RNA: ACEA small nucleolar RNA U3
Nucleotides: 191
Stems, first nucleotide, its partner, number of pairs: 001027001003025003034058001036056003040052001042050001067190005086178005094172005102146004112134003117128001150163004
Number, partner (000 for none) and nucleotide at each position: 001027a002000a003025u004024a005023c006000u007000a008000g009000g010000c011000u012000u013000c014000g015000c016000u017000c018000a019000a020000c021000a022000c023005g024004u025003a026000a027001u028000u029000u030000c031000c032000u033000u034058u035000c036056g037055u038054u039000c040052a041000c042050a043000a044000g045000a046000g047000u048000a049000c050042u051000c052040u053000u054038g055037a056036c057000a058034a059000a060000a061000c062000c063000c064000u065000a066000a067190a068189c069188c070187g071186u072000g073000a074000u075000g076000a077000g078000g079000a080000g081000u082000u083000g084000u085000a086178u087177a088176c089175c090174u091000u092000u093000c094172c095171a096170c097169c098168c099000u100000a101000a102146u103145g104144g105143a106000g107000g108000u109000u110000u111000a112134g113133u114132c115000a116000a117128u118000a119000c120000a121000a122000u123000a124000a125000u126000g127000u128117a129000u130000u131000c132114g133113a134112c135000u136000u137000c138000g139000a140000u141000g142000a143105u144104c145103c146102a147000u148000u149000u150163a151162c152161u153160c154000u155000u156000u157000u158000a159000a160153g161152a162151g163150u164000u165000a166000u167000u168098g169097g170096g171095u172094g173000u174090g175089g176088g177087u178086a179000u180000u181000g182000c183000u184000g185000a186071g187070c188069g189068g190067u191000u